[Rfam]
RNA sequence: CACGAUAAAGGCAAACCUGGUGAAAGCCGGGGACGCAAAACUAGAGGGGCUAAAGCGCAUUUUUGCUUUUGCCAGCCAGUUGCCGAAA
Numbered sequence: 001c002a003c004g005a006u007a008a009a010g011g012c013a014a015a016c017c018u019g020g021u022g023a024a025a026g027c028c029g030g031g032g033a034c035g036c037a038a039a040a041c042u043a044g045a046g047g048g049g050c051u052a053a054a055g056c057g058c059a060u061u062u063u064u065g066c067u068u069u070u071g072c073c074a075g076c077c078a079g080u081u082g083c084c085g086a087a088a
Base pairs, nucleotide, nucleotide: 003085004084011036012035016031017030018029019028020027021026034075039081040080041079042078046077047076048073049072050071

Record summary
This 88-nucleotide RNA sequence from Paenibacillus sp. GP183 belongs to the Rfam family "c-di-GMP-I-GGC riboswitch aptamer". The family's consensus secondary structure is taken from published work. It scores 65 bits against the family's covariance model. On this family, see Weinberg et al., Proc Natl Acad Sci U S A 2017: "Bioinformatic analysis of riboswitch structures uncovers variant classes with altered ligand specificity".